[Rfam]
RNA sequence: GGUAUUGUUUGCCCCACGAUAAGCCCCGGAAACUUAACGUGUCAAACUCUCACUGAACACAAU
Numbered sequence: 001g002g003u004a005u006u007g008u009u010u011g012c013c014c015c016a017c018g019a020u021a022a023g024c025c026c027c028g029g030a031a032a033c034u035u036a037a038c039g040u041g042u043c044a045a046a047c048u049c050u051c052a053c054u055g056a057a058c059a060c061a062a063u
Base pairs, nucleotide, nucleotide: 006059007058008057009056010055011054015041016040017039018038020036021035022034023033